[Rfam]
RNA sequence: AGCUUUUACGAGGUAUCAGCACUUUUCUUUCAUUAGGGGGAAGGAGGGAAGAAAGUACCAAAGAGCAGCAGACUUUUAAACUUUAAAUAGCCAGGUCUGAGAGCCUGAGCCUGCGUUUUCAUUGUAUUUCAUCCUGUAAGGAGCUGAAUCACUUGGCGAGCCUACUUCACUUCUUUUAAGAGAAAGAGUAAGUUAAAAAAAAA
Numbered sequence: 001a002g003c004u005u006u007u008a009c010g011a012g013g014u015a016u017c018a019g020c021a022c023u024u025u026u027c028u029u030u031c032a033u034u035a036g037g038g039g040g041a042a043g044g045a046g047g048g049a050a051g052a053a054a055g056u057a058c059c060a061a062a063g064a065g066c067a068g069c070a071g072a073c074u075u076u077u078a079a080a081c082u083u084u085a086a087a088u089a090g091c092c093a094g095g096u097c098u099g100a101g102a103g104c105c106u107g108a109g110c111c112u113g114c115g116u117u118u119u120c121a122u123u124g125u126a127u128u129u130c131a132u133c134c135u136g137u138a139a140g141g142a143g144c145u146g147a148a149u150c151a152c153u154u155g156g157c158g159a160g161c162c163u164a165c166u167u168c169a170c171u172u173c174u175u176u177u178a179a180g181a182g183a184a185a186g187a188g189u190a191a192g193u194u195a196a197a198a199a200a201a202a203a
Stems, first nucleotide, its partner, number of pairs: 002020003007015003029143003033139003037135003040130004048123002051120001053119003070098006099114001101112001103110001153198002158194002165186003168182001170180003
Rfam assigns this 203-nucleotide RNA from Diceros bicornis to the family "Connexin-43 internal ribosome entry site (IRES)". A search with the family's covariance model found it, with a score of 164 bits. The base pairs follow the family's consensus structure, which is taken from published work. This family represents the connexin-43 internal ribosome entry site (IRES) which allows cap independent translation during conditions such as heat shock and stress.